Rfam assigns this 174-nucleotide RNA sequence from Nostoc punctiforme to the family "Nitrogen stress-induced RNA 8". A search with the family's covariance model found it, with a score of 67 bits. Lineage of the source: Bacteria > Bacillati > Nostocaceae > Nostoc > Nostoc punctiforme. Gene Ontology term of the family: heterocyst differentiation.

[Rfam]
RNA sequence: AUAUUAGCUAGAAUGCAAAUGAUUGAAACAUUAAGAAUAAGCUCAACUAGCAUUCUUUUUGUUCAUAUUAUUUGUUUGUCUUACAACCUAUUAAGUUUUAUUUGUGCUGUUUUUUGCAUAUUCCAAGGUGUAUUGCCACUUUCAAGCUAUUUAGACGGGAUAAACUAUCCCGUC
Numbered sequence: 001a002u003a004u005u006a007g008c009u010a011g012a013a014u015g016c017a018a019a020u021g022a023u024u025g026a027a028a029c030a031u032u033a034a035g036a037a038u039a040a041g042c043u044c045a046a047c048u049a050g051c052a053u054u055c056u057u058u059u060u061g062u063u064c065a066u067a068u069u070a071u072u073u074g075u076u077u078g079u080c081u082u083a084c085a086a087c088c089u090a091u092u093a094a095g096u097u098u099u100a101u102u103u104g105u106g107c108u109g110u111u112u113u114u115u116g117c118a119u120a121u122u123c124c125a126a127g128g129u130g131u132a133u134u135g136c137c138a139c140u141u142u143c144a145a146g147c148u149a150u151u152u153a154g155a156c157g158g159g160a161u162a163a164a165c166u167a168u169c170c171c172g173u174c
Base pairs, nucleotide, nucleotide: 002106003105005086007084010081011080012079015075018072019071020070021069022068023067025063026062028060033057034056035055037053038052118151120148122146125142126141127140128139129138130137154174155173156172157171158170159169160168161167